[Rfam]
RNA sequence: UGCACUGUAUGGUAUCUGCACCCAGCAGUAUUAUUGUUGGGCUGUUCAGAAGACAGUGCUAUAGAAACUCGGUAUCUGGCAUCGUUGGUUGCAUGCUUACUGUGCAUGUUGAACCUGGUAUUUCUAUUGAUACAAGC
Numbered sequence: 001u002g003c004a005c006u007g008u009a010u011g012g013u014a015u016c017u018g019c020a021c022c023c024a025g026c027a028g029u030a031u032u033a034u035u036g037u038u039g040g041g042c043u044g045u046u047c048a049g050a051a052g053a054c055a056g057u058g059c060u061a062u063a064g065a066a067a068c069u070c071g072g073u074a075u076c077u078g079g080c081a082u083c084g085u086u087g088g089u090u091g092c093a094u095g096c097u098u099a100c101u102g103u104g105c106a107u108g109u110u111g112a113a114c115c116u117g118g119u120a121u122u123u124c125u126a127u128u129g130a131u132a133c134a135a136g137c
Stems, first nucleotide, its partner, number of pairs: 002059006015052001017050001018045003022041002024038005062126006069118004079105004
RNA: Small nucleolar RNA SNORA8